[Rfam]
RNA sequence: GUAAGGAACCCUAGGCAUAAAUGCCGGGGCUUUCAAGACUCCCCGACCCUUCGGGCGGGUUAAGAAAGCCGAACCUUACCAGCCUAAGCCUUUCGAGGACUACGUUUUCAAGGUCACGAUACCUACAAAUGCGUCGCUAGUUUGUAGCUCUAUCGCUGGUUGUUAAACAUCUGUAACGGGUUAAGGAAGUGCAGCCAGCACGACAAGCUUUGAAAACAUUGGCGAAGCGAACAUUAC
Numbered sequence: 001g002u003a004a005g006g007a008a009c010c011c012u013a014g015g016c017a018u019a020a021a022u023g024c025c026g027g028g029g030c031u032u033u034c035a036a037g038a039c040u041c042c043c044c045g046a047c048c049c050u051u052c053g054g055g056c057g058g059g060u061u062a063a064g065a066a067a068g069c070c071g072a073a074c075c076u077u078a079c080c081a082g083c084c085u086a087a088g089c090c091u092u093u094c095g096a097g098g099a100c101u102a103c104g105u106u107u108u109c110a111a112g113g114u115c116a117c118g119a120u121a122c123c124u125a126c127a128a129a130u131g132c133g134u135c136g137c138u139a140g141u142u143u144g145u146a147g148c149u150c151u152a153u154c155g156c157u158g159g160u161u162g163u164u165a166a167a168c169a170u171c172u173g174u175a176a177c178g179g180g181u182u183a184a185g186g187a188a189g190u191g192c193a194g195c196c197a198g199c200a201c202g203a204c205a206a207g208c209u210u211u212g213a214a215a216a217c218a219u220u221g222g223c224g225a226a227g228c229g230a231a232c233a234u235u236a237c
Stems, first nucleotide, its partner, number of pairs: 001079006010029002012026001016023002030068004082223003086219001087101002090098002104217011119153002123147008134230005155199009167190002170187003174183003
RNA: HNH endonuclease-associated RNA and ORF (HEARO) RNA